RNA sequence: UACUCCGGUGCUCCUGACGCUCUUCCCAAAGAACCACGCGAGGGAGAGAAACCCCACCAAGCCCCACCCCUCCCGUCCACAGCGGGCACUCACUCGCGCGAGUGAACAUCACCAACUCGGCUGGUAUCGGGACGGCUUGCCUGCUCUACGCUCAGCGCGGCACCACAACUUCACCGCACACAUGCGACGGCCCUCGCCGGGACUGGCAUCCCAGUGCGAGGGCCUGACCACACAGGAAGAACCUCACCUUCCCA
Numbered sequence: 001u002a003c004u005c006c007g008g009u010g011c012u013c014c015u016g017a018c019g020c021u022c023u024u025c026c027c028a029a030a031g032a033a034c035c036a037c038g039c040g041a042g043g044g045a046g047a048g049a050a051a052c053c054c055c056a057c058c059a060a061g062c063c064c065c066a067c068c069c070c071u072c073c074c075g076u077c078c079a080c081a082g083c084g085g086g087c088a089c090u091c092a093c094u095c096g097c098g099c100g101a102g103u104g105a106a107c108a109u110c111a112c113c114a115a116c117u118c119g120g121c122u123g124g125u126a127u128c129g130g131g132a133c134g135g136c137u138u139g140c141c142u143g144c145u146c147u148a149c150g151c152u153c154a155g156c157g158c159g160g161c162a163c164c165a166c167a168a169c170u171u172c173a174c175c176g177c178a179c180a181c182a183u184g185c186g187a188c189g190g191c192c193c194u195c196g197c198c199g200g201g202a203c204u205g206g207c208a209u210c211c212c213a214g215u216g217c218g219a220g221g222g223c224c225u226g227a228c229c230a231c232a233c234a235g236g237a238a239g240a241a242c243c244u245c246a247c248c249u250u251c252c253c254a
Stems, first nucleotide, its partner, number of pairs: 008231003016077004090105006120156005189224005195218003199212004235252005

Streptomyces sRNA 4677: a 254-nucleotide RNA sequence from Streptomyces aurantiacus. It is annotated as a small RNA. It scores 204 bits against the family's covariance model. From the family's description: Located in the intergenic region between anti-sigma factor SCO4677 gene and a putative regulatory protein gene SCO4676. scr4677 expression requires the SCO4677 activity and scr4677 sRNA itself seem to affect the levels of the SCO4676-associated transcripts.